[Rfam]
RNA sequence: CAGUGAACUCAGCUCUUUUAGAAUUUGUCCAGCAGGUUUCCCGCUCGCGGGAAGCCGCU
Numbered sequence: 001c002a003g004u005g006a007a008c009u010c011a012g013c014u015c016u017u018u019u020a021g022a023a024u025u026u027g028u029c030c031a032g033c034a035g036g037u038u039u040c041c042c043g044c045u046c047g048c049g050g051g052a053a054g055c056c057g058c059u
Stems, first nucleotide, its partner, number of pairs: 035056009